The record is a 108-nucleotide RNA sequence from Ancylostoma caninum, which matches "SL2 RNA" in Rfam. Rfam 15.1 lists 598 matches to the family in 38 species. The source organism's lineage runs through Eukaryota, Ecdysozoa, Rhabditida, Ancylostomatinae and Ancylostoma. Rfam's curators write: This family represents SL2 RNA. SL2 RNA is involved in trans splicing in lower eukaryotes. Trans-splicing is a form of RNA processing. The acquisition of a spliced leader from a SL RNA is a intra-molecular reaction which precisely joins exons derived from separately transcribed RNAs. For this family Rfam cites "Trans-spliced leader RNA, 5S-rRNA genes and novel variant orphan spliced-leader of the lymphatic filarial nematode Wuchereria bancrofti, and a sensitive polymerase chain reaction based detection assay" (Dassanayake et al., Gene, 2001).
RNA sequence: GGUUUUAACCCAGGUAUCUCAAGGUACUACGGGUGUCCGACCUACCGUGUGGUUGUGUCGAAAACCUCAAUUUUUGGAUCGCCUUCGCGGGGUAUCCGAGAGGGCAAA
Numbered sequence: 001g002g003u004u005u006u007a008a009c010c011c012a013g014g015u016a017u018c019u020c021a022a023g024g025u026a027c028u029a030c031g032g033g034u035g036u037c038c039g040a041c042c043u044a045c046c047g048u049g050u051g052g053u054u055g056u057g058u059c060g061a062a063a064a065c066c067u068c069a070a071u072u073u074u075u076g077g078a079u080c081g082c083c084u085u086c087g088c089g090g091g092g093u094a095u096c097c098g099a100g101a102g103g104g105c106a107a108a
Stems, first nucleotide, its partner, number of pairs: 007036001009032002013028002016025003038060004042055001044053003084106001086104001088102001091097002